[Rfam]
The family of this 366-nucleotide RNA from Melghirimyces algeriensis is "transfer-messenger RNA". Pairs were carried over by alignment from the consensus structure, which is taken from published work. Bacterial tmRNA, also known as 10Sa RNA or SsrA, is named for its dual tRNA and mRNA-like properties. Its role is to liberate the mRNA from a stalled ribosome. To accomplish this part of the tmRNA is used as a reading frame that ends in a translation stop signal.
RNA sequence: GGGGGCGUUUUGGGAUUCGACGGGAACAGUUCGAGCGUCGGUAGCGAGCCGUGGGGCUGCGUCCUUCGUUAAAAACGCGGAUUGCCUAAAUGUAACUGGCAAACAAGAAAACUACGCUCUGGCUGCUUAAUAGCUGGCCAGGAUCCAUGGCUCCAUCGCCCGUGUGGAGUUCUUGGGUCUCAUAACUGAAGCGGGCUAGCUGACUGGAGGCGCUAUCGGCCGGAAAGCGAACCUUAGAUAGCUGGCUCUUUGAAGCGCCUGUCGUUGGGCAGUUCAAAGAGUGAGAUCUCAAUACAGCGACUGCGCUCGGAGAAUCCGACGUGGCGAUGUUUUCGGACAGCGGUUCGACUCCGCUCGCCUCCACCA
Numbered sequence: 001g002g003g004g005g006c007g008u009u010u011u012g013g014g015a016u017u018c019g020a021c022g023g024g025a026a027c028a029g030u031u032c033g034a035g036c037g038u039c040g041g042u043a044g045c046g047a048g049c050c051g052u053g054g055g056g057c058u059g060c061g062u063c064c065u066u067c068g069u070u071a072a073a074a075a076c077g078c079g080g081a082u083u084g085c086c087u088a089a090a091u092g093u094a095a096c097u098g099g100c101a102a103a104c105a106a107g108a109a110a111a112c113u114a115c116g117c118u119c120u121g122g123c124u125g126c127u128u129a130a131u132a133g134c135u136g137g138c139c140a141g142g143a144u145c146c147a148u149g150g151c152u153c154c155a156u157c158g159c160c161c162g163u164g165u166g167g168a169g170u171u172c173u174u175g176g177g178u179c180u181c182a183u184a185a186c187u188g189a190a191g192c193g194g195g196c197u198a199g200c201u202g203a204c205u206g207g208a209g210g211c212g213c214u215a216u217c218g219g220c221c222g223g224a225a226a227g228c229g230a231a232c233c234u235u236a237g238a239u240a241g242c243u244g245g246c247u248c249u250u251u252g253a254a255g256c257g258c259c260u261g262u263c264g265u266u267g268g269g270c271a272g273u274u275c276a277a278a279g280a281g282u283g284a285g286a287u288c289u290c291a292a293u294a295c296a297g298c299g300a301c302u303g304c305g306c307u308c309g310g311a312g313a314a315u316c317c318g319a320c321g322u323g324g325c326g327a328u329g330u331u332u333u334c335g336g337a338c339a340g341c342g343g344u345u346c347g348a349c350u351c352c353g354c355u356c357g358c359c360u361c362c363a364c365c366a
Stems, first nucleotide, its partner, number of pairs: 001362007021335008030326001035322007045309005050068002053065002057080006119141007142179006149171008158196006199228003204223004216241001245282010257270003261301004266294002339355005
Taxonomically the source falls in Melghirimyces (Bacteria, Bacillati, Bacillota, Caryophanales). The family is grouped with related families in Rfam's "tRNA clan".